The record is an 86-nucleotide RNA from Tepidibacillus sp. HK-1, which matches "c-di-GMP-I riboswitch aptamer" in Rfam. The organism belongs to Tepidibacillus, within Bacteria. The base pairs follow the family's consensus structure, which is taken from published work.
RNA sequence: AAAUGAUAAUGGCACACCUAUUGAAAAAUAGGGCCGCAAAGCUAAAGGGGCUAAGGUGUUUUACACUAUGCCAGCCAGUUGCCGAA
Numbered sequence: 001a002a003a004u005g006a007u008a009a010u011g012g013c014a015c016a017c018c019u020a021u022u023g024a025a026a027a028a029u030a031g032g033g034c035c036g037c038a039a040a041g042c043u044a045a046a047g048g049g050g051c052u053a054a055g056g057u058g059u060u061u062u063a064c065a066c067u068a069u070g071c072c073a074g075c076c077a078g079u080u081g082c083c084g085a086a
Stems, first nucleotide, its partner, number of pairs: 012037002017032006040080004047076002049072003056066004
Dot-bracket structure: ...........((...((((((....))))))...))..((((...(((((....((((...))))...)))..))))))......